Notes: The family of this 172-nucleotide RNA sequence from Enterococcus rivorum is "Lysine riboswitch aptamer". Rfam links the family to the GO term lysine biosynthetic process. The match comes from Rfam's covariance-model search (90 bits). The organism belongs to Enterococcus, within Bacteria.
[Rfam]
RNA sequence: AAUUGAGGUAGAGGUUGCGAUUUUUAUUACCCUUGUGGAGUGAAAGGACACAUUGAAACAAGCUUAGGAAAAAUCGCCGAAAUGCAUAACAGCCUUUCUGUUGUGUGUUGGGACGCAAGUGAAUAAUUUGCGGACUGUCUUAGUAGUGAUGCUAAGUUGUGCUAUGUUUUGU
Numbered sequence: 001a002a003u004u005g006a007g008g009u010a011g012a013g014g015u016u017g018c019g020a021u022u023u024u025u026a027u028u029a030c031c032c033u034u035g036u037g038g039a040g041u042g043a044a045a046g047g048a049c050a051c052a053u054u055g056a057a058a059c060a061a062g063c064u065u066a067g068g069a070a071a072a073a074u075c076g077c078c079g080a081a082a083u084g085c086a087u088a089a090c091a092g093c094c095u096u097u098c099u100g101u102u103g104u105g106u107g108u109u110g111g112g113a114c115g116c117a118a119g120u121g122a123a124u125a126a127u128u129u130g131c132g133g134a135c136u137g138u139c140u141u142a143g144u145a146g147u148g149a150u151g152c153u154a155a156g157u158u159g160u161g162c163u164a165u166g167u168u169u170u171g172u
Stems, first nucleotide, its partner, number of pairs: 006167001008165004017077009032062005081109012110136002114132007139156006